[Rfam]
RNA sequence: GAGUGUGUCUGAUUGACGAGUCUAACCCGAUCAUCGGGGAAGGCACAGGGAAACCAACAUGGCCGCAGCACUAUGUGCGAGGGCCGCCGUCUUCAAGGGCGGGGAGUCAACCGGACACGACCCGAAACCAGAUGAUCUACGCGUGGGCAAGGUGAAGCGUGCCGAAAGGCACGUGGAGGCCUGUUAGGGAUGGUGUCCUACAAUACCCUCCCGUGACCUACGUGUAGGGGUGAAAGGCCCAUCGAAUCUGGCAACAGCUGGUU
Numbered sequence: 001g002a003g004u005g006u007g008u009c010u011g012a013u014u015g016a017c018g019a020g021u022c023u024a025a026c027c028c029g030a031u032c033a034u035c036g037g038g039g040a041a042g043g044c045a046c047a048g049g050g051a052a053a054c055c056a057a058c059a060u061g062g063c064c065g066c067a068g069c070a071c072u073a074u075g076u077g078c079g080a081g082g083g084c085c086g087c088c089g090u091c092u093u094c095a096a097g098g099g100c101g102g103g104g105a106g107u108c109a110a111c112c113g114g115a116c117a118c119g120a121c122c123c124g125a126a127a128c129c130a131g132a133u134g135a136u137c138u139a140c141g142c143g144u145g146g147g148c149a150a151g152g153u154g155a156a157g158c159g160u161g162c163c164g165a166a167a168g169g170c171a172c173g174u175g176g177a178g179g180c181c182u183g184u185u186a187g188g189g190a191u192g193g194u195g196u197c198c199u200a201c202a203a204u205a206c207c208c209u210c211c212c213g214u215g216a217c218c219u220a221c222g223u224g225u226a227g228g229g230g231u232g233a234a235a236g237g238c239c240c241a242u243c244g245a246a247u248c249u250g251g252c253a254a255c256a257g258c259u260g261g262u263u
Stems, first nucleotide, its partner, number of pairs: 005118007013110005020044004026038004048055002061085004068078004088101004121261002124258001128251006137227011148215001150182004157174007187212004192208002195206002229239003
Annotation: A member of the RNA family "Archaeal large subunit ribosomal RNA" from Halorussus gelatinilyticus, 263 nucleotides of a longer RNA. The organism belongs to Halorussus, within Archaea. It scores 2837 bits against the family's covariance model.